[Rfam]
Nucleotides: 131
Base pairs, nucleotide, nucleotide: 003054004053005052006051007050015042016041017040018039019038020037021036022035023034024033080112081111082110083109085107086106087105088104
Number, partner (000 for none) and nucleotide at each position: 001000a002000u003054g004053c005052a006051g007050g008000a009000u010000a011000a012000g013000u014000u015042a016041c017040a018039a019038u020037a021036u022035a023034g024033c025000u026000g027000g028000g029000c030000a031000g032000u033024g034023c035022u036021g037020u038019g039018u040017u041016g042015u043000c044000g045000u046000u047000c048000c049000c050007c051006c052005u053004g054003c055000a056000a057000a058000a059000a060000a061000u062000a063000a064000a065000c066000u067000g068000c069000u070000u071000c072000c073000u074000a075000c076000u077000a078000u079000c080112c081111c082110u083109g084000u085107c086106u087105g088104u089000u090000u091000u092000g093000a094000c095000a096000c097000u098000a099000c100000c101000u102000c103000a104088g105087c106086a107085g108000a109083c110082a111081g112080g113000g114000a115000c116000g117000c118000u119000u120000g121000g122000u123000c124000u125000c126000a127000a128000a129000c130000a131000g